[Rfam]
RNA: Singlet oxygen resistance RNA X
RNA sequence: AUUCGACGGUGAUGCUGCUUAACGCUUCAUCACCUUCAUACCUCCCUGUUGGACUUGGCCGGACUUUUGUCCGGCCUUUUUU
Numbered sequence: 001a002u003u004c005g006a007c008g009g010u011g012a013u014g015c016u017g018c019u020u021a022a023c024g025c026u027u028c029a030u031c032a033c034c035u036u037c038a039u040a041c042c043u044c045c046c047u048g049u050u051g052g053a054c055u056u057g058g059c060c061g062g063a064c065u066u067u068u069g070u071c072c073g074g075c076c077u078u079u080u081u082u
Stems, first nucleotide, its partner, number of pairs: 008034007057076008